A member of the RNA family "Small nucleolar RNA Z157/R69/R10" from Phaseolus vulgaris, 96 nucleotides long. The family is grouped with related families in Rfam's "SNORD52 clan". Lineage of the source: Eukaryota > Magnoliopsida > eudicotyledons > Fabaceae > Phaseolus. The match comes from Rfam's covariance-model search (72 bits).
RNA sequence: CAGUGUGCUGUGACGAAACACUUGUGGACUAGAGUUUCUGAUCUGAGAAUUUACUCAGAAGUUGAUUAUGAAACCCUUGGCUGUCCGAGCACACCA
Numbered sequence: 001c002a003g004u005g006u007g008c009u010g011u012g013a014c015g016a017a018a019c020a021c022u023u024g025u026g027g028a029c030u031a032g033a034g035u036u037u038c039u040g041a042u043c044u045g046a047g048a049a050u051u052u053a054c055u056c057a058g059a060a061g062u063u064g065a066u067u068a069u070g071a072a073a074c075c076c077u078u079g080g081c082u083g084u085c086c087g088a089g090c091a092c093a094c095c096a
Base pairs, nucleotide, nucleotide: 003094004093005092006091007090008089037065038064042060043058044057045056046055047054